[Rfam]
RNA sequence: CAAUAGAAUAGGAAUUUCUCAAGGGUGGAGGCACAUCUCCUAAUGAAAGGAGGUGAUGCUAUUUGACAGUUUUUCAAGCAUUGAUGCUGGCAAUUUCGUUUGCGGGUCUCAUUGUCACGGUCCUGUCAUUUCACCAAAAAAAAUAAUCCACCCUUGAGCCGGCAAGCAUAAGCGGUGGAUUACUGCCCUUUACGCCAAUCCCCUUUAAGGGAACCAACUAUUGCAUGACCGAGUAUCUUUGUCAUGCUCGG
Number, nucleotide and partner (000 for none) at each position: 001c223002a222003a221004u220005a219006g000007a000008a000009u217010a000011g215012g000013a000014a000015u000016u198017u197018c158019u157020c156021a155022a154023g153024g152025g151026u000027g148028g147029a000030g000031g000032c000033a000034c055035a054036u000037c052038u051039c050040c049041u048042a000043a000044u000045g000046a000047a000048a041049g040050g039051a038052g037053g000054u035055g034056a000057u000058g000059c000060u000061a000062u000063u000064u000065g127066a126067c125068a124069g123070u000071u000072u000073u000074u000075c000076a000077a000078g000079c000080a000081u000082u000083g000084a000085u000086g000087c000088u000089g000090g000091c000092a000093a000094u000095u000096u000097c119098g118099u117100u000101u000102g000103c000104g000105g000106g000107u000108c000109u000110c000111a000112u000113u000114g000115u000116c000117a099118c098119g097120g000121u000122c000123c069124u068125g067126u066127c065128a000129u000130u000131u000132c000133a000134c000135c000136a000137a000138a000139a000140a000141a000142a000143a000144u000145a000146a000147u028148c027149c000150a000151c025152c024153c023154u022155u021156g020157a019158g018159c000160c000161g000162g000163c000164a000165a000166g186167c185168a184169u000170a000171a000172g000173c000174g000175g000176u000177g000178g000179a000180u000181u000182a000183c000184u168185g167186c166187c000188c000189u000190u000191u000192a000193c000194g000195c000196c000197a017198a016199u212200c211201c210202c209203c000204u000205u000206u000207a000208a000209g202210g201211g200212a199213a000214c000215c011216a000217a009218c000219u005220a004221u003222u002223g001224c000225a000226u000227g000228a000229c251230c250231g249232a248233g247234u246235a245236u244237c000238u000239u000240u000241g000242u000243c000244a236245u235246g234247c233248u232249c231250g230251g229
Notes
BsrG: a 251-nucleotide RNA sequence from Neobacillus massiliamazoniensis. It scores 88 bits against the family's covariance model. About the family: bsrE, bsrG and bsrH pair through intermolecular interactions with antisense sRNAs. They form type I toxin/antitoxin system that includes an mRNA encoding for a short, toxic peptide (bsrE, bsrG and bsrH) and an antitoxin that is comprised of an antisense RNA. bsrG encodes a 39-amino-acid toxin, and the 180 nucleotide antisense sRNA called SR4 acts as the antitoxin (they overlap by 123 nucleotides). SR4 interaction with the 3'UTR of bsrG RNA promotes bsrG degradation and inhibits its translation.